[Rfam]
RNA sequence: UUUCCAUGGCGCCGGCCACUCCACUUUUCUGGUCGGCAGCACAUGAAAAAAGGAGGAUAAACCGCUUGCUCGCGGUGCGGCAGUGUGGAGACCUGUCGUAAAGCACGAGGCCUUGCCCGUGUGAGGACGCAUCCGGCGGAGGCCGUGCGUCCGGAGCAAAACAAAAUGGCG
Numbered sequence: 001u002u003u004c005c006a007u008g009g010c011g012c013c014g015g016c017c018a019c020u021c022c023a024c025u026u027u028u029c030u031g032g033u034c035g036g037c038a039g040c041a042c043a044u045g046a047a048a049a050a051a052g053g054a055g056g057a058u059a060a061a062c063c064g065c066u067u068g069c070u071c072g073c074g075g076u077g078c079g080g081c082a083g084u085g086u087g088g089a090g091a092c093c094u095g096u097c098g099u100a101a102a103g104c105a106c107g108a109g110g111c112c113u114u115g116c117c118c119g120u121g122u123g124a125g126g127a128c129g130c131a132u133c134c135g136g137c138g139g140a141g142g143c144c145g146u147g148c149g150u151c152c153g154g155a156g157c158a159a160a161a162c163a164a165a166a167u168g169g170c171g
Stems, first nucleotide, its partner, number of pairs: 007041002011037008062075004066159006076100008085092002103122005109117002125152008135144003